RNA: Bacterial RNase P class A
RNA sequence: GGAGUUGGCCAGACAGUCGCCGCUAAUAUGCUCGCAAGAGCCGUUGGGGGAGGAAAGUCCGGGCUCCAUAGGGCAGAGUGCCAGGUAACGCCUGGGCGGCGAGAGCCGACGGAAAGUGCAGCAGAGAGUAGACCGCCUAAGCUUCUGACAUCAACCUCAGGAGCCGGUAAGGGUGAAAGGGUGCGGUAAGAGCGCACCGCGCGCCUGGCAACAGUGCGUGGCAUGGUAAACCCCACUCGGAGCAAGACCAAAUAGGGACCCAAUGGCGUGGCCCGCGCUGGGUCCGGGUAGGUUGCUUGAGCGCUGUGGUGACGCAGCGCCUAGAGGAAUGACUGUCCACGACAGAACCCGGCUUAUCGGCCGACUCCCCAU
Numbered sequence: 001g002g003a004g005u006u007g008g009c010c011a012g013a014c015a016g017u018c019g020c021c022g023c024u025a026a027u028a029u030g031c032u033c034g035c036a037a038g039a040g041c042c043g044u045u046g047g048g049g050g051a052g053g054a055a056a057g058u059c060c061g062g063g064c065u066c067c068a069u070a071g072g073g074c075a076g077a078g079u080g081c082c083a084g085g086u087a088a089c090g091c092c093u094g095g096g097c098g099g100c101g102a103g104a105g106c107c108g109a110c111g112g113a114a115a116g117u118g119c120a121g122c123a124g125a126g127a128g129u130a131g132a133c134c135g136c137c138u139a140a141g142c143u144u145c146u147g148a149c150a151u152c153a154a155c156c157u158c159a160g161g162a163g164c165c166g167g168u169a170a171g172g173g174u175g176a177a178a179g180g181g182u183g184c185g186g187u188a189a190g191a192g193c194g195c196a197c198c199g200c201g202c203g204c205c206u207g208g209c210a211a212c213a214g215u216g217c218g219u220g221g222c223a224u225g226g227u228a229a230a231c232c233c234c235a236c237u238c239g240g241a242g243c244a245a246g247a248c249c250a251a252a253u254a255g256g257g258a259c260c261c262a263a264u265g266g267c268g269u270g271g272c273c274c275g276c277g278c279u280g281g282g283u284c285c286g287g288g289u290a291g292g293u294u295g296c297u298u299g300a301g302c303g304c305u306g307u308g309g310u311g312a313c314g315c316a317g318c319g320c321c322u323a324g325a326g327g328a329a330u331g332a333c334u335g336u337c338c339a340c341g342a343c344a345g346a347a348c349c350c351g352g353c354u355u356a357u358c359g360g361c362c363g364a365c366u367c368c369c370c371a372u
Base pairs, nucleotide, nucleotide: 001368002367003366004365005364006363007362008361009360010359011357012337013336014335015334016333017332018331020050021049023047024046025045026044027043055355056354057353059352060351061350062349063348064242065241066240067239071274072273073272074271076238077237078236079235080234081095082094083093084092085091096110097108098107099106100105111233112232116231117230118227119226133172134171135168136167137166141164142163143162144161145160146159147158148157180198181197182196183195184194185193199222200220201219202218203217204216205214206213207212246294247293248292249291256285257284258283259282260281261280265279266278267277268276269275301320302319303318304317305316306315307314308313